[Rfam]
RNA sequence: ACGUGUCACGGGCGACAGGCGAGGGCGCCCGCGACAUCACAGACACAACACCGUGCCACGGGAACAUCGUGGCAUUUCAGGGCGUU
Dot-bracket structure: ...((((.((((((.(.......).)))))).))))................((((((((.......))))))))...........
Annotation:
A member of the RNA family "nrdJ RNA" from Streptomyces sp. BK239, 86 nucleotides long. NCBI's taxonomy places the organism under Bacteria, Actinomycetota, Actinomycetes, Streptomycetaceae, Streptomyces.